[Rfam]
RNA: pan motif
RNA sequence: UGGGUAGUAUCUUCGGAACUACACCUUUAUGCAAGUUUUACAAAUCACCUUUAAUAUGCAACAAAAAUUAGAUUCUGCCUUGAUCCAAAAGGACUGGGACAGAGGG
Numbered sequence: 001u002g003g004g005u006a007g008u009a010u011c012u013u014c015g016g017a018a019c020u021a022c023a024c025c026u027u028u029a030u031g032c033a034a035g036u037u038u039u040a041c042a043a044a045u046c047a048c049c050u051u052u053a054a055u056a057u058g059c060a061a062c063a064a065a066a067a068u069u070a071g072a073u074u075c076u077g078c079c080u081u082g083a084u085c086c087a088a089a090a091g092g093a094c095u096g097g098g099a100c101a102g103a104g105g106g
Stems, first nucleotide, its partner, number of pairs: 002025002004022005010017002075102003078098003082094001084093003